[Rfam]
RNA: mir-2064 microRNA precursor family
RNA sequence: UUGUCCACGGUUGCAUUGUGUUGGUCUUUGUAAUGUGCGAACAAAGCAGCACUGUGCAACUGUGUAGAUG
Numbered sequence: 001u002u003g004u005c006c007a008c009g010g011u012u013g014c015a016u017u018g019u020g021u022u023g024g025u026c027u028u029u030g031u032a033a034u035g036u037g038c039g040a041a042c043a044a045a046g047c048a049g050c051a052c053u054g055u056g057c058a059a060c061u062g063u064g065u066a067g068a069u070g
Stems, first nucleotide, its partner, number of pairs: 003069003006064011018052006026046006